[Rfam]
RNA sequence: GCCCUCCUGAUCCCUUUCCCAUCAGAUCUGAACACCGGUCUUGUGGUCGAAAAAGGAGGAAAAGUACAAUUCCAACUGGCCUCAGCCUCUCUGCAGGUGCAGUCCUGCUCUGAGGGGCCAGGGGGAAGACAGC
Numbered sequence: 001g002c003c004c005u006c007c008u009g010a011u012c013c014c015u016u017u018c019c020c021a022u023c024a025g026a027u028c029u030g031a032a033c034a035c036c037g038g039u040c041u042u043g044u045g046g047u048c049g050a051a052a053a054a055g056g057a058g059g060a061a062a063a064g065u066a067c068a069a070u071u072c073c074a075a076c077u078g079g080c081c082u083c084a085g086c087c088u089c090u091c092u093g094c095a096g097g098u099g100c101a102g103u104c105c106u107g108c109u110c111u112g113a114g115g116g117g118c119c120a121g122g123g124g125g126a127a128g129a130c131a132g133c
Base pairs, nucleotide, nucleotide: 003059004058005057006056007055019046020045021044023043025040026039027038028037076121077120078119079118080117081116082115
RNA: Small nucleolar RNA SNORA61
Organism: Colius striatus